[Rfam]
This 72-nucleotide sequence from Ramazzottius varieornatus belongs to the Rfam family "mir-124 microRNA precursor family".
Nucleotides: 072
Base pairs, nucleotide, nucleotide: 003070005068006067009064010063011062012061013060014059015058016057018055019054023050024049025048027046028045029044
Number, partner (000 for none) and nucleotide at each position: 001000g002000u003070c004000g005068c006067u007000u008000u009064g010063u011062g012061u013060u014059c015058a016057c017000u018055g019054c020000u021000a022000g023050c024049c025048u026000c027046g028045a029044u030000g031000c032000g033000u034000u035000u036000u037000c038000u039000a040000c041000g042000a043000a044029a045028u046027u047000a048025a049024g050023g051000c052000a053000c054019g055018c056000g057016g058015u059014g060013a061012a062011u063010g064009c065000c066000a067006a068005g069000a070003g071000a072000c
Its family is annotated with RISC complex and miRNA-mediated post-transcriptional gene silencing in the Gene Ontology. The family's consensus secondary structure was predicted with PFOLD. NCBI's taxonomy places the organism under Eukaryota, Protostomia, Panarthropoda, Ramazzottiidae, Ramazzottius. The match comes from Rfam's covariance-model search (57 bits).